Rfam assigns this 172-nucleotide RNA from Alkalibaculum bacchi to the family "Group II catalytic intron D1-D4-3". The match comes from Rfam's covariance-model search (136 bits). Gene Ontology term of the family: Group II intron splicing.
RNA sequence: UCGUGAGCGAUUGCGAAUCUGAAGGAAGCCGGAUGGCAAAUCUCUGGUCUGACGAACAGAAAUCACAUCAGGCUACAGUUUAGGAUGAGGCUGCGUAACAAGUCGAAGUCCAAUAACUACUCGGAAUGAACUGUAGUAUAUGUGGCAGAUAGAUGGAGAGGAAGAUUGUGUU
Numbered sequence: 001u002c003g004u005g006a007g008c009g010a011u012u013g014c015g016a017a018u019c020u021g022a023a024g025g026a027a028g029c030c031g032g033a034u035g036g037c038a039a040a041u042c043u044c045u046g047g048u049c050u051g052a053c054g055a056a057c058a059g060a061a062a063u064c065a066c067a068u069c070a071g072g073c074u075a076c077a078g079u080u081u082a083g084g085a086u087g088a089g090g091c092u093g094c095g096u097a098a099c100a101a102g103u104c105g106a107a108g109u110c111c112a113a114u115a116a117c118u119a120c121u122c123g124g125a126a127u128g129a130a131c132u133g134u135a136g137u138a139u140a141u142g143u144g145g146c147a148g149a150u151a152g153a154u155g156g157a158g159a160g161g162a163a164g165a166u167u168g169u170g171u172u
Base pairs, nucleotide, nucleotide: 001016002015003014004013005012006011028172030170031169037164041159042158043157044156045155046154047150048149049148050147051146063145064144065143066142067141072137073136074135076133077132078131079130080129081128082127083111084110085109086108089104090103091102092101